[Rfam]
RNA sequence: UUGGGAGAUUGAUGCCAUAGCAGAAGUGCUCAUGGUUGCGACCCUGUCAGAUUCCAAUGAAUCUGCAAAUGCUGCU
Numbered sequence: 001u002u003g004g005g006a007g008a009u010u011g012a013u014g015c016c017a018u019a020g021c022a023g024a025a026g027u028g029c030u031c032a033u034g035g036u037u038g039c040g041a042c043c044c045u046g047u048c049a050g051a052u053u054c055c056a057a058u059g060a061a062u063c064u065g066c067a068a069a070u071g072c073u074g075c076u
Stems, first nucleotide, its partner, number of pairs: 011044001014042001016040001019076005025070001026039003048065007
Mammalian CPEB3 ribozyme: a 76-nucleotide RNA sequence from Crocodylus porosus. A search with the family's covariance model found it, with a score of 43 bits. The source organism's lineage runs through Eukaryota, Chordata, Teleostomi, Euteleostomi and Crocodylus.